[Rfam]
RNA sequence: UAAAAAAAGGGGUUGUAGGGGAUGAAAUCCCCUGCCGUACUAAGGCGGGUGCUCAGACAGCUUUGCUGUCGUCAAC
Numbered sequence: 001u002a003a004a005a006a007a008a009g010g011g012g013u014u015g016u017a018g019g020g021g022a023u024g025a026a027a028u029c030c031c032c033u034g035c036c037g038u039a040c041u042a043a044g045g046c047g048g049g050u051g052c053u054c055a056g057a058c059a060g061c062u063u064u065g066c067u068g069u070c071g072u073c074a075a076c
Base pairs, nucleotide, nucleotide: 015035016034017033018032019031020030021029022028056070057069058068059067060066
The family of this 76-nucleotide RNA sequence from Geosporobacter ferrireducens is "Clostridiales-2 RNA".
The organism belongs to Geosporobacter, within Bacteria.
The match comes from Rfam's covariance-model search (69 bits).
The family's consensus secondary structure is taken from published work.
It is annotated as a small RNA.